[Rfam]
RNA sequence: UAUGGGGUAGGAUUCAAUGCGUUAAGUGUCGGAGGAACGGAAUGUGAACUUCGAACGAAAAAUGAUCGGCUUCGACUUGUCGACCAUUUGCGGUGUUGUUUCCGCAUUCGCUAUG
Numbered sequence: 001u002a003u004g005g006g007g008u009a010g011g012a013u014u015c016a017a018u019g020c021g022u023u024a025a026g027u028g029u030c031g032g033a034g035g036a037a038c039g040g041a042a043u044g045u046g047a048a049c050u051u052c053g054a055a056c057g058a059a060a061a062a063u064g065a066u067c068g069g070c071u072u073c074g075a076c077u078u079g080u081c082g083a084c085c086a087u088u089u090g091c092g093g094u095g096u097u098g099u100u101u102c103c104g105c106a107u108u109c110g111c112u113a114u115g
Base pairs, nucleotide, nucleotide: 001115002114003113004112005111010103011102012101015098016097017096018095019094020092021091022090026056027055029054030053031052032051033050034049040109041108042107043106044105060089061088062087063086

A member of the RNA family "THF (Tetrahydrofolate) riboswitch aptamer" from Lentilactobacillus buchneri, 115 nucleotides long. It scores 68 bits against the family's covariance model. Rfam describes the family as follows. Tetrahydrofolate (THF) riboswitch was first reported for Ames et al. as an RNA motif in 5' untranslated (5'-UTR)regions of folate transport and biosynthesis genes in Firmicutes genomes. Pairs were carried over by alignment from the consensus structure, which is taken from published work. Lineage of the source: Bacteria > Bacillati > Lactobacillaceae > Lentilactobacillus buchneri > Lentilactobacillus buchneri subsp. silagei.